The family of this 54-nucleotide RNA is "UnaL2 LINE 3' element".
RNA sequence: AUGUAAAAGUUGUGUAAGUCGCUCUGGAUAAGAGCAUCUGCUAAAUUCCUGUAA
Numbered sequence: 001a002u003g004u005a006a007a008a009g010u011u012g013u014g015u016a017a018g019u020c021g022c023u024c025u026g027g028a029u030a031a032g033a034g035c036a037u038c039u040g041c042u043a044a045a046u047u048c049c050u051g052u053a054a
Base pairs, nucleotide, nucleotide: 013043014041015040016039021035022034023033024032025031
About the family: The eel long interspersed element (LINE) UnaL2 and its partner short interspersed element (SINE) share a conserved 3' tail containing a stem-loop that is critical for their retrotransposition. The sequence is in the family's curated seed alignment.